[Rfam]
RNA: RAGATH-18 RNA
RNA sequence: CCUUUGGAGUAUUAAGAACCCUUGAGUAGUUCUUUUUAGAAUGAAAAAGAAUACGAUGAAUUAGGAA
Numbered sequence: 001c002c003u004u005u006g007g008a009g010u011a012u013u014a015a016g017a018a019c020c021c022u023u024g025a026g027u028a029g030u031u032c033u034u035u036u037u038a039g040a041a042u043g044a045a046a047a048a049g050a051a052u053a054c055g056a057u058g059a060a061u062u063a064g065g066a067a
Base pairs, nucleotide, nucleotide: 001065002064003063009054010053011052012051013050021049022048023047029042030041031040032039033038